A member of the RNA family "Y RNA" from Bison bison, 110 nucleotides long. Y RNAs are components of the Ro ribonucleoprotein particle (Ro RNP), in association with Ro60 and La proteins. A reference for the family is Chen et al. (2000), "Ro ribonucleoproteins contribute to the resistance of Deinococcus radiodurans to ultraviolet irradiation", Genes Dev. The organism belongs to Bison bison, within Eukaryota. Rfam classes the family as a non-coding RNA gene. The family has 104 seed sequences and 26,986 matches in Rfam 15.1.
RNA sequence: GGCUGGUCCGAAGGUAGUGAGUUAUCUCAAUUGAUUGUUCACAGUCAGUUACAGAUCGAACUCCUCGUUCUACUCUUCCCCCCUUCUCACUACUGCACUUGACUAGAAGA
Numbered sequence: 001g002g003c004u005g006g007u008c009c010g011a012a013g014g015u016a017g018u019g020a021g022u023u024a025u026c027u028c029a030a031u032u033g034a035u036u037g038u039u040c041a042c043a044g045u046c047a048g049u050u051a052c053a054g055a056u057c058g059a060a061c062u063c064c065u066c067g068u069u070c071u072a073c074u075c076u077u078c079c080c081c082c083c084u085u086c087u088c089a090c091u092a093c094u095g096c097a098c099u100u101g102a103c104u105a106g107a108a109g110a
Base pairs, nucleotide, nucleotide: 003106004105005104006103007102008101010100011099014096015095016091017090018089019088020087021086043074044073045072047071048070
Dot-bracket structure: ..((((((.((..((((((((.....................(((.((.....................)))))...........))))))...))..))))))))....